[Rfam]
RNA: Group II catalytic intron D1-D4-5
RNA sequence: GAGAACUGAUAUUCCAAUGGGUGGAAUGAUAGGGUAACGCCUUGAAACGCCCCCUUAAUACUCCGACAUGCACGAAAAUGUGUAAUAGUUUCGUGUAUGAAGCUCGGUGAAGUCGGCAGAAAGUGACCGUAAGCAAGGAUUUUCCUUGUACGAAAGCUGUUCAGAGGUGAAUGGUGUUGCCUAUAUGCCGGAGGUCUACAAA
Numbered sequence: 001g002a003g004a005a006c007u008g009a010u011a012u013u014c015c016a017a018u019g020g021g022u023g024g025a026a027u028g029a030u031a032g033g034g035u036a037a038c039g040c041c042u043u044g045a046a047a048c049g050c051c052c053c054c055u056u057a058a059u060a061c062u063c064c065g066a067c068a069u070g071c072a073c074g075a076a077a078a079u080g081u082g083u084a085a086u087a088g089u090u091u092c093g094u095g096u097a098u099g100a101a102g103c104u105c106g107g108u109g110a111a112g113u114c115g116g117c118a119g120a121a122a123g124u125g126a127c128c129g130u131a132a133g134c135a136a137g138g139a140u141u142u143u144c145c146u147u148g149u150a151c152g153a154a155a156g157c158u159g160u161u162c163a164g165a166g167g168u169g170a171a172u173g174g175u176g177u178u179g180c181c182u183a184u185a186u187g188c189c190g191g192a193g194g195u196c197u198a199c200a201a202a
Base pairs, nucleotide, nucleotide: 019052020051021050022049023048031043032042033041034040053194054193055192056191063107064106065105066104067099068098069097070096071095072094073093074092075091076090077089079087080086114190115189116188117187118186123180124179125178126177127176128152129151130150136147137146138145156175157174158173159172160171161170162169163168